[Rfam]
RNA: Bacterial RNase P class A
Organism: Pseudoteredinibacter isoporae
RNA sequence: AAAGGUGGCUGGGCAGUCGCUCUUCUUUUAUUAGGAGGGAGGAAAGUCCGGGCUCCAGAGGGCAGAGUGCCAGGUAACACCUGGGGGGCGCGAGCCUACGGAAAGUGCAGCAGAAAGGAAACCGCCUAAGCCGCUUUGCGGCCGGUAAGGUUGAAAAGGUGCGGUAAGAGCGCACCGCGCAGCUGGUAACAGUCUGCGGCGAUGGUAAACCCCACUCGGAGCAAGACCAAAUAGGAAUCCUAUAGGCGUUGCCCGCGCUGGAUUCGGGUAGGUCGCUUGAGGUGUUCGGUGACGAGCAUCCCAGAUGAAUGACUGUUCACGACAGAACCCGGCUUACAGGCCGCCUUUGACU
Numbered sequence: 001a002a003a004g005g006u007g008g009c010u011g012g013g014c015a016g017u018c019g020c021u022c023u024u025c026u027u028u029u030a031u032u033a034g035g036a037g038g039g040a041g042g043a044a045a046g047u048c049c050g051g052g053c054u055c056c057a058g059a060g061g062g063c064a065g066a067g068u069g070c071c072a073g074g075u076a077a078c079a080c081c082u083g084g085g086g087g088g089c090g091c092g093a094g095c096c097u098a099c100g101g102a103a104a105g106u107g108c109a110g111c112a113g114a115a116a117g118g119a120a121a122c123c124g125c126c127u128a129a130g131c132c133g134c135u136u137u138g139c140g141g142c143c144g145g146u147a148a149g150g151u152u153g154a155a156a157a158g159g160u161g162c163g164g165u166a167a168g169a170g171c172g173c174a175c176c177g178c179g180c181a182g183c184u185g186g187u188a189a190c191a192g193u194c195u196g197c198g199g200c201g202a203u204g205g206u207a208a209a210c211c212c213c214a215c216u217c218g219g220a221g222c223a224a225g226a227c228c229a230a231a232u233a234g235g236a237a238u239c240c241u242a243u244a245g246g247c248g249u250u251g252c253c254c255g256c257g258c259u260g261g262a263u264u265c266g267g268g269u270a271g272g273u274c275g276c277u278u279g280a281g282g283u284g285u286u287c288g289g290u291g292a293c294g295a296g297c298a299u300c301c302c303a304g305a306u307g308a309a310u311g312a313c314u315g316u317u318c319a320c321g322a323c324a325g326a327a328c329c330c331g332g333c334u335u336a337c338a339g340g341c342c343g344c345c346u347u348u349g350a351c352u
Base pairs, nucleotide, nucleotide: 001348002347003346004345005344006343007342008341009340010339011337012317013316014315015314016313017312018311020039021038022037023036024035025034026033044335045334046333048332049331050330051329052328053221054220055219056218060254061253062252063251065217066216067215068214069213070084071083072082073081074080085099086097087096088095089094100212101211105210106209107206108205122150123149124146125145126144130142131141132140133139134138158176159175160174161173162172163171177200178198179197180196181195182194183192184191185190225274226273227272228271235265236264237263238262239261240260245259246258247257248256249255281300282299283298284297285296286295287294288293